[Rfam]
RNA sequence: AUUUUAGAUCCUUUGUACAUCCAUAUAAAUGUUAGAGUUGGCUUGCCAGUUUCUACCCAAACUCCAAAAACCUGUUGGGAUUUUGGGUGGAAUUACAUUAAAU
Numbered sequence: 001a002u003u004u005u006a007g008a009u010c011c012u013u014u015g016u017a018c019a020u021c022c023a024u025a026u027a028a029a030u031g032u033u034a035g036a037g038u039u040g041g042c043u044u045g046c047c048a049g050u051u052u053c054u055a056c057c058c059a060a061a062c063u064c065c066a067a068a069a070a071c072c073u074g075u076u077g078g079g080a081u082u083u084u085g086g087g088u089g090g091a092a093u094u095a096c097a098u099u100a101a102a103u
Base pairs, nucleotide, nucleotide: 018089019088020087021086022085023084025082031046032045034043035042057079058078060076061075062074
RNA: Purine riboswitch aptamer